[Rfam]
RNA sequence: UAAAUGUGCCACUACAAUUUUAACCUUAGAACCAGGUCAGGACCGGAAGGUAGCAUCCUUAAUGAGAACUGAAAUGUGUAGUGGUUUUUGUUUUAAA
Numbered sequence: 001u002a003a004a005u006g007u008g009c010c011a012c013u014a015c016a017a018u019u020u021u022a023a024c025c026u027u028a029g030a031a032c033c034a035g036g037u038c039a040g041g042a043c044c045g046g047a048a049g050g051u052a053g054c055a056u057c058c059u060u061a062a063u064g065a066g067a068a069c070u071g072a073a074a075u076g077u078g079u080a081g082u083g084g085u086u087u088u089u090g091u092u093u094u095a096a097a
Stems, first nucleotide, its partner, number of pairs: 004091003008087001009084006015076001017075006025066004034059003042051003
Description
This 97-nucleotide RNA sequence from Mycoplasma sp. belongs to the Rfam family "Bacterial small signal recognition particle RNA". The organism belongs to Mycoplasma, within Bacteria. From the family's description: The signal recognition particle (SRP) is a universally conserved ribonucleoprotein involved in the co-translational targeting of proteins to membranes. The base pairs follow the family's consensus structure, which is taken from published work. Gene Ontology terms of the family: SRP-dependent cotranslational protein targeting to membrane, signal sequence recognition and signal recognition particle, plasma membrane targeting.